[Rfam]
RNA sequence: ACGAAUCUUGUUGCGGUCUGGGCUUGCUGUUCUCAACUAUCAAUGGGAAGCCCUUACCCCAAAAAGCAUUUG
Numbered sequence: 001a002c003g004a005a006u007c008u009u010g011u012u013g014c015g016g017u018c019u020g021g022g023c024u025u026g027c028u029g030u031u032c033u034c035a036a037c038u039a040u041c042a043a044u045g046g047g048a049a050g051c052c053c054u055u056a057c058c059c060c061a062a063a064a065a066g067c068a069u070u071u072g
Stems, first nucleotide, its partner, number of pairs: 007066003011062003015058003020053004025048001027046002
RNA: mir-129 microRNA precursor family